[Rfam]
The record is a 64-nucleotide RNA sequence from Neotabrizicola shimadae, which matches "terC RNA" in Rfam. Rfam 15.1 lists 1,112 matches to the family in 772 species.
RNA sequence: AGCGCGGGCCGGGCCCCUCUGACGCCGUAUGGAUUUCCAUGCGCCGUGAUGUCGGACCGCAUCG
Numbered sequence: 001a002g003c004g005c006g007g008g009c010c011g012g013g014c015c016c017c018u019c020u021g022a023c024g025c026c027g028u029a030u031g032g033a034u035u036u037c038c039a040u041g042c043g044c045c046g047u048g049a050u051g052u053c054g055g056a057c058c059g060c061a062u063c064g
Stems, first nucleotide, its partner, number of pairs: 006058002009055004022047003026043007